[Rfam]
RNA sequence: GGGCUCUUCAAAAACGAAGAGAGAACAUAGUACGUUAUGCUCCCUUUCAAGAAAUUGAAAGGGAGCUUUCUUAUUUU
Number, nucleotide and partner (000 for none) at each position: 001g000002g000003g000004c000005u000006c000007u000008u000009c000010a000011a000012a000013a000014a000015c000016g000017a000018a000019g000020a000021g000022a000023g000024a000025a000026c000027a000028u000029a000030g000031u000032a000033c000034g000035u000036u000037a000038u000039g066040c065041u064042c063043c062044c061045u060046u059047u058048c057049a056050a055051g000052a000053a000054a000055u050056u049057g048058a047059a046060a045061g044062g043063g042064a041065g040066c039067u000068u000069u000070c000071u000072u000073a000074u000075u000076u000077u000
RNA: PyrG leader